[Rfam]
RNA sequence: AUACGUGUAGGGUGGAGACGCACAACCAUCGGACUGUGUAGCACAAGGCUUGUUUUAGACGCUUCAUCUCGUCCGCUACCGAUGGUCGAUUCCUCCUCCUGACAAAGCUUUUGCUGACAGGGUGUCAUAUGUCACCACAGCAAGCAGGAAACGUCGUCGCGAAUCUUUGACCCCUCUGGUCGAGAACCUCGCUAGACACUGGAGUGUCCAACCACUCCUGACGCGCCCUGACACCGACCGUGAGAAGUCGUGUGUGCCGAACGCCGUUUCCGGCAGCCCGGAAACCGA
Numbered sequence: 001a002u003a004c005g006u007g008u009a010g011g012g013u014g015g016a017g018a019c020g021c022a023c024a025a026c027c028a029u030c031g032g033a034c035u036g037u038g039u040a041g042c043a044c045a046a047g048g049c050u051u052g053u054u055u056u057a058g059a060c061g062c063u064u065c066a067u068c069u070c071g072u073c074c075g076c077u078a079c080c081g082a083u084g085g086u087c088g089a090u091u092c093c094u095c096c097u098c099c100u101g102a103c104a105a106a107g108c109u110u111u112u113g114c115u116g117a118c119a120g121g122g123u124g125u126c127a128u129a130u131g132u133c134a135c136c137a138c139a140g141c142a143a144g145c146a147g148g149a150a151a152c153g154u155c156g157u158c159g160c161g162a163a164u165c166u167u168u169g170a171c172c173c174c175u176c177u178g179g180u181c182g183a184g185a186a187c188c189u190c191g192c193u194a195g196a197c198a199c200u201g202g203a204g205u206g207u208c209c210a211a212c213c214a215c216u217c218c219u220g221a222c223g224c225g226c227c228c229u230g231a232c233a234c235c236g237a238c239c240g241u242g243a244g245a246a247g248u249c250g251u252g253u254g255u256g257c258c259g260a261a262c263g264c265c266g267u268u269u270c271c272g273g274c275a276g277c278c279c280g281g282a283a284a285c286c287g288a
Stems, first nucleotide, its partner, number of pairs: 014096004023088001025086008036076003040050003058073004097149005152223004156197003159192004166184007201218006231255004235250004266285007

rne-II RNA: a 288-nucleotide sequence from Pseudomonas sp. v388. It is annotated as a cis-regulatory element. The base pairs follow the family's consensus structure, which is taken from published work.